[Rfam]
Overview
Shown here is a 138-nucleotide sequence from Gossypium klotzschianum, a member of the family "MIR7502 microRNA precursor family".

RNA sequence: UGUUAAAAAUUUCAUCCAUUAGUACUGGUAAAAAUUGUCGUGGUUGACAGAAUGUCUGACAUGUGACGUGCCACGUGUAUCUCAUGCUGAUGUACAGGGACCAAUUUUAACAACAAAAAAUGGAUGAAACUUUUAACA
Dot-bracket structure: .(((((((.(((((((.(((..(..(.((.(((........................................................................))).)).)..)..))).))))))).))))))).
Annotation
The base pairs follow the family's consensus structure, which was predicted with RNAalifold. Lineage of the source: Eukaryota > Streptophytina > Mesangiospermae > Pentapetalae > Gossypium.